A member of the RNA family "Purine riboswitch aptamer" from Mesobacillus subterraneus, 102 nucleotides long.
Nucleotides: 102
Base pairs, nucleotide, nucleotide: 018088019087020086021085022084023083024082025081029049031047032046033045034044035043058078059077060076061075062074063073064072
Number, partner (000 for none) and nucleotide at each position: 001000c002000u003000u004000u005000a006000a007000c008000u009000u010000a011000a012000u013000u014000u015000a016000u017000u018088c019087a020086c021085u022084c023083a024082u025081a026000u027000a028000a029049u030000c031047g032046c033045a034044g035043g036000g037000a038000u039000a040000u041000g042000g043035c044034c045033u046032g047031c048000a049029a050000g051000u052000a053000u054000c055000u056000a057000c058078c059077g060076g061075a062074u063073u064072a065000c066000c067000g068000u069000a070000a071000a072064u073063g074062a075061u076060c077059u078058g079000a080000c081025u082024a083023u084022g085021a086020g087019u088018g089000a090000g091000c092000a093000a094000u095000g096000c097000c098000a099000g100000a101000g102000g